[Rfam]
RNA sequence: CCCACCUCUUACGAGGUGGGCUAUUGCAUUUCGUCGCUUCGCGACU
Numbered sequence: 001c002c003c004a005c006c007u008c009u010u011a012c013g014a015g016g017u018g019g020g021c022u023a024u025u026g027c028a029u030u031u032c033g034u035c036g037c038u039u040c041g042c043g044a045c046u
Base pairs, nucleotide, nucleotide: 001020002019003018004017005016006015007014008013033045034044035043036042037041

A member of the RNA family "Acido-Lenti-1 RNA" from Candidatus Korobacter versatilis, 46 nucleotides long.
It is one of the family's seed sequences.
By type it is a small RNA.